A member of the RNA family "mir-9193 microRNA precursor family" from Eptesicus fuscus, 74 nucleotides long.
RNA sequence: CUUGGGGUGGGGGGGUCCCUCAGCCAGGAUUGCAAGAGGAUGUAGGCCAGGCUGAGGGACUCCACCAGUGCAGG
Numbered sequence: 001c002u003u004g005g006g007g008u009g010g011g012g013g014g015g016u017c018c019c020u021c022a023g024c025c026a027g028g029a030u031u032g033c034a035a036g037a038g039g040a041u042g043u044a045g046g047c048c049a050g051g052c053u054g055a056g057g058g059a060c061u062c063c064a065c066c067a068g069u070g071c072a073g074g
Stems, first nucleotide, its partner, number of pairs: 003072002006069001008067003012063014027048002030045005